[Rfam]
RNA sequence: AUCGUUCAUCUCUUUCUUGAUCAUUGAAACUGUCAAGUUCAAGAGACGGAAGUAGGGAGACAUCCCGAAGGAACGCGCC
Numbered sequence: 001a002u003c004g005u006u007c008a009u010c011u012c013u014u015u016c017u018u019g020a021u022c023a024u025u026g027a028a029a030c031u032g033u034c035a036a037g038u039u040c041a042a043g044a045g046a047c048g049g050a051a052g053u054a055g056g057g058a059g060a061c062a063u064c065c066c067g068a069a070g071g072a073a074c075g076c077g078c079c
Stems, first nucleotide, its partner, number of pairs: 003075005009046005049076001055066003
Dot-bracket structure: ..(((((.(((((............................)))))..[.....(((......)))....)))))]...
This 79-nucleotide sequence from Oscillatoria sp. FACHB-1407 belongs to the Rfam family "Glutamine riboswitch aptamer (glnA leader)". It scores 56 bits against the family's covariance model.